[Rfam]
RNA sequence: GUAGUCGGAUCGCCCAGUUUUUGGAAUGCUCCAAAUUC
Numbered sequence: 001g002u003a004g005u006c007g008g009a010u011c012g013c014c015c016a017g018u019u020u021u022u023g024g025a026a027u028g029c030u031c032c033a034a035a036u037u038c
Stems, first nucleotide, its partner, number of pairs: 003018001005016001007014002020035006
Rfam assigns this 38-nucleotide RNA from Arachis hypogaea to the family "Plastid psbT antisense RNA". From the family's description: Plastid-psbT-asRNA is an antisense RNA (asRNA) motif reported in Plastids It has been shown that psbT expression is controlled by two antisense RNAs originated from psbN transcription by the nuclear-encoded polymerase (NEP), in which the short antisense RNA hybridizes to psbT CDS, thereby stabilizing psbT transcript while blocking its translation during photooxidative stress. The family's consensus secondary structure was predicted with LocARNA. NCBI's taxonomy places the organism under Eukaryota, Streptophytina, Mesangiospermae, fabids, Arachis. The match comes from Rfam's covariance-model search (55 bits). On this family, see Richter et al., Plant Commun 2023: "Retrograde signaling in plants: A critical review focusing on the GUN pathway and beyond". Rfam 15.1 lists 1,866 matches to the family in 287 species.